[Rfam]
RNA sequence: CUCUUAUCGCGAGUGGUGGAGGGACUGGCCUGAUGAAACCCAGCAACCGUUUUCUUAGGAAAAUUGGUGCUAAUUCCUGCGAAUCGAUUUUAUGAUUCGAGAGAUAAGAG
Numbered sequence: 001c002u003c004u005u006a007u008c009g010c011g012a013g014u015g016g017u018g019g020a021g022g023g024a025c026u027g028g029c030c031u032g033a034u035g036a037a038a039c040c041c042a043g044c045a046a047c048c049g050u051u052u053u054c055u056u057a058g059g060a061a062a063a064u065u066g067g068u069g070c071u072a073a074u075u076c077c078u079g080c081g082a083a084u085c086g087a088u089u090u091u092a093u094g095a096u097u098c099g100a101g102a103g104a105u106a107a108g109a110g
Stems, first nucleotide, its partner, number of pairs: 001110008013041001015040003021031003025079001027077002042071004047067002050062003075102001080099006